The record is a 92-nucleotide RNA from Nicotiana attenuata, which matches "MIR6152 microRNA precursor family" in Rfam.

[Rfam]
RNA sequence: UGGACAGAUUAUUGUAUUCGACUGUAUUCGAUUCUAUUCACGACAUGAAACAGGGUAAACAGAAAGUGAAUCAAUUAACAUAAUAGACUCCU
Number, nucleotide and partner (000 for none) at each position: 001u000002g091003g090004a089005c000006a000007g000008a000009u086010u085011a084012u083013u082014g081015u080016a000017u078018u077019c000020g076021a075022c000023u073024g072025u000026a071027u070028u069029c068030g067031a000032u000033u000034c000035u000036a056037u055038u054039c053040a000041c000042g000043a000044c000045a000046u000047g000048a000049a000050a000051c000052a000053g039054g038055g037056u036057a000058a000059a000060c000061a000062g000063a000064a000065a000066g000067u030068g029069a028070a027071u026072c024073a023074a000075u021076u020077a018078a017079c000080a015081u014082a013083a012084u011085a010086g009087a000088c000089u004090c003091c002092u000